[Rfam]
RNA sequence: AGGAGGAGAAAACAAAAUGAACGAAGUUCAUUUUCUGUAAAUAUUUUCGACGAAUUGCCAACCACAGAAUGGAGGGGUAUUACAAUUA
Numbered sequence: 001a002g003g004a005g006g007a008g009a010a011a012a013c014a015a016a017a018u019g020a021a022c023g024a025a026g027u028u029c030a031u032u033u034u035c036u037g038u039a040a041a042u043a044u045u046u047u048c049g050a051c052g053a054a055u056u057g058c059c060a061a062c063c064a065c066a067g068a069a070u071g072g073a074g075g076g077g078u079a080u081u082a083c084a085a086u087u088a
Base pairs, nucleotide, nucleotide: 008048009047010046011045012044016032017031018030019029020028021027057078058077059076062074065071066070
This 88-nucleotide RNA sequence belongs to the Rfam family "GA-cis RNA".